The family of this 41-nucleotide RNA sequence from Bacillus smithii is "Ribosomal protein L19 leader". Rfam classes the family as a cis-regulatory leader. A reference for the family is Zengel and Lindahl (1994), "Diverse mechanisms for regulating ribosomal protein synthesis in Escherichia coli", Prog Nucleic Acid Res Mol Biol. About the family: This family is a putative r-protein leader autoregulatory structure found in B. subtilis and other low-GC Gram-positive bacteria.
[Rfam]
RNA sequence: ACGAUGUUCCGCUGCAAACGAUCGAUCUGCAAGAGCAUCUG
Numbered sequence: 001a002c003g004a005u006g007u008u009c010c011g012c013u014g015c016a017a018a019c020g021a022u023c024g025a026u027c028u029g030c031a032a033g034a035g036c037a038u039c040u041g
Stems, first nucleotide, its partner, number of pairs: 003039007013031004018026001